[Rfam]
A member of the RNA family "DUF805b RNA", 35 nucleotides long. The family's consensus secondary structure is taken from published work. Rfam classes the family as a cis-regulatory element.
RNA sequence: ACGGACGAUGCCGAAAAUCCGAAACAGAGUAGGCA
Numbered sequence: 001a002c003g004g005a006c007g008a009u010g011c012c013g014a015a016a017a018u019c020c021g022a023a024a025c026a027g028a029g030u031a032g033g034c035a
Stems, first nucleotide, its partner, number of pairs: 002021004010034003